[Rfam]
RNA sequence: CCGCAGGGGUCCAUUCGCGACGUCCCCUCGAGGCGGCAGCCCAAAGUUCGCGUCCAGCAAAACCUCAUUGGAGGAAUGGACGCCAUG
Numbered sequence: 001c002c003g004c005a006g007g008g009g010u011c012c013a014u015u016c017g018c019g020a021c022g023u024c025c026c027c028u029c030g031a032g033g034c035g036g037c038a039g040c041c042c043a044a045a046g047u048u049c050g051c052g053u054c055c056a057g058c059a060a061a062a063c064c065u066c067a068u069u070g071g072a073g074g075a076a077u078g079g080a081c082g083c084c085a086u087g
Stems, first nucleotide, its partner, number of pairs: 005028005050083006
chrB-a RNA: an 87-nucleotide RNA sequence. The family's RNA type in Rfam is cis-regulatory element.